[Rfam]
Shown here is a 125-nucleotide RNA from Phyllostomus discolor, a member of the family "Small nucleolar RNA SNORD22". For this family Rfam cites "Requirement for intron-encoded U22 small nucleolar RNA in 18S ribosomal RNA maturation" (Tycowski et al., Science, 1994). The family has 49 seed sequences and 1,081 matches in Rfam 15.1. The family's consensus secondary structure was predicted with PFOLD. Rfam links the family to the GO terms nucleolus and RNA processing. NCBI's taxonomy places the organism under Eukaryota, Deuterostomia, Euteleostomi, Chiroptera, Phyllostomus.
RNA sequence: UCCUAGUGAAGAAACAUUCGCAUGUGUUAAUCCUACUCUAGUUGCAGAACCUGUGAAGAUGAACCCACUGGCACUGGCUGGGGGAGAAGAGGAAAGUUUGUUCCAGAUGGAACUGUCUGAGGGAU
Number, nucleotide and partner (000 for none) at each position: 001u124002c123003c122004u121005a000006g000007u000008g000009a000010a000011g000012a000013a000014a000015c000016a000017u000018u000019c000020g000021c000022a000023u000024g000025u000026g000027u000028u000029a000030a000031u000032c000033c000034u000035a000036c000037u000038c000039u000040a000041g000042u000043u000044g000045c000046a000047g000048a000049a000050c000051c000052u000053g000054u000055g000056a000057a000058g000059a000060u000061g000062a000063a000064c000065c000066c000067a000068c000069u000070g000071g000072c000073a000074c000075u000076g000077g000078c000079u000080g000081g000082g000083g000084g000085a000086g000087a000088a000089g000090a000091g000092g000093a000094a000095a000096g000097u000098u000099u000100g000101u000102u000103c000104c000105a000106g000107a000108u000109g000110g000111a000112a000113c000114u000115g000116u000117c000118u000119g000120a000121g004122g003123g002124a001125u000